RNA: SAH (S-adenosyl-L-homocysteine) riboswitch aptamer
RNA sequence: GUUCCCGAGGGGCGCUGCAGCGGUCAGACCGCGAGGCUCGGGGGCAGGGCGCAUCAUUGAUGCAACGGCGCCCAUUCGUC
Numbered sequence: 001g002u003u004c005c006c007g008a009g010g011g012g013c014g015c016u017g018c019a020g021c022g023g024u025c026a027g028a029c030c031g032c033g034a035g036g037c038u039c040g041g042g043g044g045c046a047g048g049g050c051g052c053a054u055c056a057u058u059g060a061u062g063c064a065a066c067g068g069c070g071c072c073c074a075u076u077c078g079u080c
Stems, first nucleotide, its partner, number of pairs: 002044007021031004